RNA sequence: GAGAAAUGAGGAUACGUUCUUUGUCUUACUACUGUACUGAAGACUUCAGAUCCAACUCUGAUCUCACACUGAUG
Numbered sequence: 001g002a003g004a005a006a007u008g009a010g011g012a013u014a015c016g017u018u019c020u021u022u023g024u025c026u027u028a029c030u031a032c033u034g035u036a037c038u039g040a041a042g043a044c045u046u047c048a049g050a051u052c053c054a055a056c057u058c059u060g061a062u063c064u065c066a067c068a069c070u071g072a073u074g
Stems, first nucleotide, its partner, number of pairs: 001065004